[Rfam]
RNA sequence: AAGUAGUGUGACAUGUCCGUUUGGGAUAUACUCUGAUGUAUGUUUAUUUAUUAUUUAAUUGCUUUGGGAUAACAGGGUGUUACAGCAUC
Numbered sequence: 001a002a003g004u005a006g007u008g009u010g011a012c013a014u015g016u017c018c019g020u021u022u023g024g025g026a027u028a029u030a031c032u033c034u035g036a037u038g039u040a041u042g043u044u045u046a047u048u049u050a051u052u053a054u055u056u057a058a059u060u061g062c063u064u065u066g067g068g069a070u071a072a073c074a075g076g077g078u079g080u081u082a083c084a085g086c087a088u089c
Stems, first nucleotide, its partner, number of pairs: 003088002007084008016076002019073003
RNA: MIR2617 microRNA precursor family
Organism: Medicago truncatula